Annotation:
The record is a 57-nucleotide RNA sequence from Glutamicibacter uratoxydans, which matches "msiK RNA" in Rfam. By type it is a cis-regulatory element. The organism belongs to Glutamicibacter, within Bacteria.
[Rfam]
RNA sequence: CCAAUUCACUUUCACUAUGGAUCGUCGGGCACGUACCUGCCCGUGAAAGGAUUGUCA
Numbered sequence: 001c002c003a004a005u006u007c008a009c010u011u012u013c014a015c016u017a018u019g020g021a022u023c024g025u026c027g028g029g030c031a032c033g034u035a036c037c038u039g040c041c042c043g044u045g046a047a048a049g050g051a052u053u054g055u056c057a
Base pairs, nucleotide, nucleotide: 009049010048011047012046013045014044026043027042028041029040030039031038